[Rfam]
RNA sequence: UCAACAAGACACGGGAGCGCACGCCGAGUGCGCUGAGAGGACGGCUGGGGCCGUCGACCGUACGAACCUGACCGGGUAAUGCCGGCGUAGGGAGAUGGACAUGACCGUCA
Dot-bracket structure: .......(.(((((..(((((.......)))))......(((((......)))))..)))).....((((.((((......))))..))))..).)..............
Numbered sequence: 001u002c003a004a005c006a007a008g009a010c011a012c013g014g015g016a017g018c019g020c021a022c023g024c025c026g027a028g029u030g031c032g033c034u035g036a037g038a039g040g041a042c043g044g045c046u047g048g049g050g051c052c053g054u055c056g057a058c059c060g061u062a063c064g065a066a067c068c069u070g071a072c073c074g075g076g077u078a079a080u081g082c083c084g085g086c087g088u089a090g091g092g093a094g095a096u097g098g099a100c101a102u103g104a105c106c107g108u109c110a
Stems, first nucleotide, its partner, number of pairs: 008096001010094001011061004017033005040055005067091004072085004